[Rfam]
RNA sequence: GCAUGGCUGCGCCGUCUACGCAGUCGUGCGGUCUUGCGGGGCGCCCGUACGCACACGGGGCGCAAGGAGACGAGAGGA
Dot-bracket structure: (((((((((((.......))))))))))).(((((.....((((((...........)))))).)..)))).......
Numbered sequence: 001g002c003a004u005g006g007c008u009g010c011g012c013c014g015u016c017u018a019c020g021c022a023g024u025c026g027u028g029c030g031g032u033c034u035u036g037c038g039g040g041g042c043g044c045c046c047g048u049a050c051g052c053a054c055a056c057g058g059g060g061c062g063c064a065a066g067g068a069g070a071c072g073a074g075a076g077g078a
Stems, first nucleotide, its partner, number of pairs: 001029011031071004035065001041063006
Shown here is a 78-nucleotide RNA sequence, a member of the family "aspS RNA".
It is one of the family's seed sequences.
Rfam classes the family as a cis-regulatory element.